[Rfam]
RNA sequence: UGGAAGAGUCUGUUAAGCUCAGGAGGGAUAGCGCCAUGGACGUGUACGGCCUUGGCUAUUGGCUAUUCUUGAUGGGUUCUGAUUCUUCUGCUCUGUAGCGCUAUCCAUCCUGAGUUUCACUGGUUCUUCUU
Numbered sequence: 001u002g003g004a005a006g007a008g009u010c011u012g013u014u015a016a017g018c019u020c021a022g023g024a025g026g027g028a029u030a031g032c033g034c035c036a037u038g039g040a041c042g043u044g045u046a047c048g049g050c051c052u053u054g055g056c057u058a059u060u061g062g063c064u065a066u067u068c069u070u071g072a073u074g075g076g077u078u079c080u081g082a083u084u085c086u087u088c089u090g091c092u093c094u095g096u097a098g099c100g101c102u103a104u105c106c107a108u109c110c111u112g113a114g115u116u117u118c119a120c121u122g123g124u125u126c127u128u129c130u131u
Stems, first nucleotide, its partner, number of pairs: 010122001016116009026106009

Shown here is a 131-nucleotide RNA sequence from Carpinus fangiana, a member of the family "MIR390 microRNA precursor family".